c-di-AMP riboswitch aptamer (ydaO/yuaA leader): a 162-nucleotide sequence from Streptomyces cyaneogriseus. NCBI's taxonomy places the organism under Bacteria, Actinomycetes, Kitasatosporales, Streptomycetaceae, Streptomyces cyaneogriseus.

RNA sequence: ACUCACCCACCACCCGUACACGGCAGGAGCGGGGGACCCACAGGUAUCACCGCCUGUUCCGGUCUCCGGAACGGCUCGGGGUAAAGCCGCACCGCACCCGGUGCGGCCGGGCAUCUCCAGCCCGCACCCGACAGCUCACCUCGCAGGCGCCGGAGAGGAAUU
Numbered sequence: 001a002c003u004c005a006c007c008c009a010c011c012a013c014c015c016g017u018a019c020a021c022g023g024c025a026g027g028a029g030c031g032g033g034g035g036a037c038c039c040a041c042a043g044g045u046a047u048c049a050c051c052g053c054c055u056g057u058u059c060c061g062g063u064c065u066c067c068g069g070a071a072c073g074g075c076u077c078g079g080g081g082u083a084a085a086g087c088c089g090c091a092c093c094g095c096a097c098c099c100g101g102u103g104c105g106g107c108c109g110g111g112c113a114u115c116u117c118c119a120g121c122c123c124g125c126a127c128c129c130g131a132c133a134g135c136u137c138a139c140c141u142c143g144c145a146g147g148c149g150c151c152g153g154a155g156a157g158g159a160a161u162u
Base pairs, nucleotide, nucleotide: 004149006147007146014027029144030143031142032141033140034139039078079129080128081127087106088105089104090103091102092101109123110122111121112120
Rfam's curators write: This family represents a conserved RNA structure found upstream of the ydaO and yuaA genes in Bacillus subtilis and related genes in other bacteria.